[Rfam]
RNA sequence: AAUUGCAUUUUAAACCUCUCUGCAAUUGCGGCUG
Number, nucleotide and partner (000 for none) at each position: 001a027002a026003u025004u024005g023006c022007a021008u000009u000010u000011u000012a000013a000014a000015c000016c000017u000018c000019u000020c000021u007022g006023c005024a004025a003026u002027u001028g000029c000030g000031g000032c000033u000034g000
RNA: S4-Bacteroidia ribosomal protein leader